Rfam assigns this 75-nucleotide sequence from Haemonchus placei to the family "mir-5928 microRNA precursor family". The organism belongs to Haemonchus, within Eukaryota. Gene Ontology terms of the family: RISC complex and miRNA-mediated post-transcriptional gene silencing. The family's consensus secondary structure was predicted with RNAalifold.
[Rfam]
RNA sequence: GGCCCAGUUUCGAAGUACAGUAGAAUAGUAGGAUCAGUUGACCUUAGUAACCUACCUUACUUCAGAUUUGGGCCC
Numbered sequence: 001g002g003c004c005c006a007g008u009u010u011c012g013a014a015g016u017a018c019a020g021u022a023g024a025a026u027a028g029u030a031g032g033a034u035c036a037g038u039u040g041a042c043c044u045u046a047g048u049a050a051c052c053u054a055c056c057u058u059a060c061u062u063c064a065g066a067u068u069u070g071g072g073c074c075c
Stems, first nucleotide, its partner, number of pairs: 001074007009066001012063006020055004026049002029046002032043001034041002